[Rfam]
RNA: TPP riboswitch aptamer (THI element)
Organism: Francisella tularensis
RNA sequence: AAAAGACAACAGGGGUGCUGUUUUUAUUAAAAAUGGCUGAGAAGUGACCCUUUGUACCUGAUCUAAGUAAUAUUAGCGUAGGGAGUUUGUUUGGUUAUCUUU
Numbered sequence: 001a002a003a004a005g006a007c008a009a010c011a012g013g014g015g016u017g018c019u020g021u022u023u024u025u026a027u028u029a030a031a032a033a034u035g036g037c038u039g040a041g042a043a044g045u046g047a048c049c050c051u052u053u054g055u056a057c058c059u060g061a062u063c064u065a066a067g068u069a070a071u072a073u074u075a076g077c078g079u080a081g082g083g084a085g086u087u088u089g090u091u092u093g094g095u096u097a098u099c100u101u102u
Base pairs, nucleotide, nucleotide: 006090007089008088009087011051012050013049014048017037018036019035020034021033022032023031024030057082058081059080060079063076064075065074066073